[Rfam]
RNA sequence: ACCGACAAAUGGCAAACCGGCUGAAAAACCGGGACGCAAAGCCAGGAGGCUAAAGCGGAGUCCGCUCCGCCACGCCCGUCCGGCCGCCGCA
Numbered sequence: 001a002c003c004g005a006c007a008a009a010u011g012g013c014a015a016a017c018c019g020g021c022u023g024a025a026a027a028a029c030c031g032g033g034a035c036g037c038a039a040a041g042c043c044a045g046g047a048g049g050c051u052a053a054a055g056c057g058g059a060g061u062c063c064g065c066u067c068c069g070c071c072a073c074g075c076c077c078g079u080c081c082g083g084c085c086g087c088c089g090c091a
Stems, first nucleotide, its partner, number of pairs: 012037002017032004022027001041084003045081003048076003055070006